[Rfam]
RNA: mir-574 microRNA precursor family
Organism: Myotis brandtii
RNA sequence: AGGCCUGCAGAGAGAGAGGCAGGGUCUGAUCCUUAGCCUCUGUGGCAGCUGUUGAUCAGAACUUGCCUCUCUUUCUUUCCCGG
Numbered sequence: 001a002g003g004c005c006u007g008c009a010g011a012g013a014g015a016g017a018g019g020c021a022g023g024g025u026c027u028g029a030u031c032c033u034u035a036g037c038c039u040c041u042g043u044g045g046c047a048g049c050u051g052u053u054g055a056u057c058a059g060a061a062c063u064u065g066c067c068u069c070u071c072u073u074u075c076u077u078u079c080c081c082g083g
Stems, first nucleotide, its partner, number of pairs: 010075013026059006034051004